[Rfam]
The family of this 102-nucleotide RNA from Bacillus sp. FJAT-27231 is "Purine riboswitch aptamer". The base pairs follow the family's consensus structure, which is taken from published work. It scores 86 bits against the family's covariance model.
RNA sequence: CAAUUAAACGUAACAUUCGCUCAUAUAAUCGCAGGAAUAUGGCCUGCAAGUUUCUACCGGAUGACCGUAAAUCAUUUGACUAUGAGUGAGCAGUGGAAGGGC
Dot-bracket structure: .................((((((((...(.(((((.......))))).)........(((((((.......)))))))..))))))))..............